[Rfam]
Nucleotides: 068
Stems, first nucleotide, its partner, number of pairs: 005064008016053003020049006026042001028040001
Number, partner (000 for none) and nucleotide at each position: 001000g002000c003000a004000a005064c006063a007062c008061u009060c010059a011058a012057a013000a014000c015000a016053u017052g018051g019000c020049g021048g022047c023046a024045c025044u026042u027000c028040c029000a030000u031000c032000c033000u034000a035000g036000c037000c038000u039000a040028g041000a042026a043000a044025a045024g046023u047022g048021c049020c050000c051018c052017c053016a054000c055000a056000g057012u058011u059010u060009g061008a062007g063006u064005g065000c066000c067000a068000c
Record summary: The record is a 68-nucleotide sequence from Carlito syrichta, which matches "mir-290 microRNA precursor family" in Rfam. A search with the family's covariance model found it, with a score of 53 bits. On this family, see Suh et al., Dev Biol 2004: "Human embryonic stem cells express a unique set of microRNAs". Clan: mir-290 clan. The family has 31 seed sequences and 565 matches in Rfam 15.1. Pairs were carried over by alignment from the consensus structure, which was predicted with RNAalifold.